[Rfam]
Shown here is a 200-nucleotide RNA from Acanthochromis polyacanthus, a member of the family "Small nucleolar RNA SNORA53". It is annotated as an H/ACA-box small nucleolar RNA. The match comes from Rfam's covariance-model search (90 bits).
RNA sequence: AACACGCUCCUUAGAUCCACCUCUGGAGGGCACUGUUCUGUGAGCAGAGGUCCUCAGCAGCUUUAUGGCUGUACAGUUGGAGGUGCUUGAGUCAUUGGCGUGUAAGAACAGUCUACCUGUCCCCCAGCCCACCUGCAGCAUUGGCAACCCUGACAUCAGACAGGGAGCUCCCAGUGCUGCAAGCCUGGGGGACAGACACU
Numbered sequence: 001a002a003c004a005c006g007c008u009c010c011u012u013a014g015a016u017c018c019a020c021c022u023c024u025g026g027a028g029g030g031c032a033c034u035g036u037u038c039u040g041u042g043a044g045c046a047g048a049g050g051u052c053c054u055c056a057g058c059a060g061c062u063u064u065a066u067g068g069c070u071g072u073a074c075a076g077u078u079g080g081a082g083g084u085g086c087u088u089g090a091g092u093c094a095u096u097g098g099c100g101u102g103u104a105a106g107a108a109c110a111g112u113c114u115a116c117c118u119g120u121c122c123c124c125c126a127g128c129c130c131a132c133c134u135g136c137a138g139c140a141u142u143g144g145c146a147a148c149c150c151u152g153a154c155a156u157c158a159g160a161c162a163g164g165g166a167g168c169u170c171c172c173a174g175u176g177c178u179g180c181a182a183g184c185c186u187g188g189g190g191g192a193c194a195g196a197c198a199c200u
Base pairs, nucleotide, nucleotide: 002103003102004101005100006099007098008097010091011090012089013088014087018085019084020083021082022081023080024079025078026055027054028053029052030051031050036047057072058071059070060069061068062067117195118194119193120192121191124188126186127185129183136179137178138177139176140175141174142173143172144171146169148164149163